[Rfam]
The record is a 69-nucleotide sequence from Coprobacter secundus, which matches "Bacteroidetes FopS (family of paralogous sRNAs)" in Rfam.
RNA sequence: GUGUUUUUUCAUGGUAUUAGAUUUAAGGUAAAGAAGAUUGGUUGUCGGGAGACAACCAUUUCUUUUUCA
Numbered sequence: 001g002u003g004u005u006u007u008u009u010c011a012u013g014g015u016a017u018u019a020g021a022u023u024u025a026a027g028g029u030a031a032a033g034a035a036g037a038u039u040g041g042u043u044g045u046c047g048g049g050a051g052a053c054a055a056c057c058a059u060u061u062c063u064u065u066u067u068c069a
Base pairs, nucleotide, nucleotide: 040057041056042055043054044053045052046051

Its family is annotated with sRNA-mediated gene silencing in the Gene Ontology. It scores 71 bits against the family's covariance model. Rfam describes the family as follows. The RNA-binding protein RbpB and BTncRNA_FopS sRNA are involved in the post-transcription regulation of polysaccharide utilisation loci (PUL). FopS sRNAs function as post-transcriptional repressors by binding to the vicinity of the start codon of the first mRNA of target PUL polycistrons, typically corresponding to the cognate SusC homolog, impeding translation of the respective glycan transporter. A reference for the family is Ruttiger et al. (2025), "The global RNA-binding protein RbpB is a regulator of polysaccharide utilization in Bacteroides thetaiotaomicron", Nat Commun. By type it is a small RNA. The source organism's lineage runs through Bacteria, Pseudomonadati, Barnesiellaceae, Coprobacter and Coprobacter secundus. The family has 12 seed sequences and 822 matches in Rfam 15.1.